[Rfam]
RNA: mir-548 microRNA precursor family
RNA sequence: UAUUAGGUUGGUGCACAAGUAAUUGAGGGUUUUGCCAUUAAAAGUAAUGGCAAAACCCUCAAUUACUUGUGCACUAACCUAAUG
Dot-bracket structure: ((((((((((((((((((((((((((((((((((((((((....))))))))))))))))))))))))))))))))))))))))
Numbered sequence: 001u002a003u004u005a006g007g008u009u010g011g012u013g014c015a016c017a018a019g020u021a022a023u024u025g026a027g028g029g030u031u032u033u034g035c036c037a038u039u040a041a042a043a044g045u046a047a048u049g050g051c052a053a054a055a056c057c058c059u060c061a062a063u064u065a066c067u068u069g070u071g072c073a074c075u076a077a078c079c080u081a082a083u084g
Stems, first nucleotide, its partner, number of pairs: 001084040